[Rfam]
RNA: Ma3 gene ribosomal frameshift signal
Organism: Orycteropus afer
Nucleotides: 066
Stems, first nucleotide, its partner, number of pairs: 015049009028065005
Number, partner (000 for none) and nucleotide at each position: 001000g002000g003000g004000a005000a006000a007000c008000g009000g010000g011000a012000u013000c014000c015049g016048g017047g018046c019045u020044u021043g022042g023041g024000a025000c026000c027000a028065g029064g030063g031062c032061c033000a034000c035000c036000c037000c038000a039000a040000g041023c042022c043021c044020a045019a046018g047017c048016c049015c050000a051000g052000a053000c054000c055000c056000a057000a058000g059000u060000a061032g062031g063030c064029u065028c066000a